[Rfam]
TPP riboswitch aptamer (THI element): a 119-nucleotide sequence from Cyanobium usitatum.
RNA sequence: AUGGGUCACUAGGGGUGCCCCGCUGCCGGCCUUAAUCAGUUGUGCAGCUUCGGGCUGAGAUCACACCCUCCGAACCUGAUCCGGGUAAUGCCGGCGCAGGGAAGUGGAAUUGGAUUGUG
Numbered sequence: 001a002u003g004g005g006u007c008a009c010u011a012g013g014g015g016u017g018c019c020c021c022g023c024u025g026c027c028g029g030c031c032u033u034a035a036u037c038a039g040u041u042g043u044g045c046a047g048c049u050u051c052g053g054g055c056u057g058a059g060a061u062c063a064c065a066c067c068c069u070c071c072g073a074a075c076c077u078g079a080u081c082c083g084g085g086u087a088a089u090g091c092c093g094g095c096g097c098a099g100g101g102a103a104g105u106g107g108a109a110u111u112g113g114a115u116u117g118u119g
Base pairs, nucleotide, nucleotide: 006107007106008105009104010103011069012068013067014066016063017055018054019053020052075100076099077098078097081094082093083092084091
Gene Ontology term of the family: thiamine pyrophosphate binding. NCBI's taxonomy places the organism under Bacteria, Bacillati, Cyanophyceae, Prochlorococcaceae, Cyanobium usitatum. Pairs were carried over by alignment from the consensus structure, which is taken from published work. It scores 72 bits against the family's covariance model.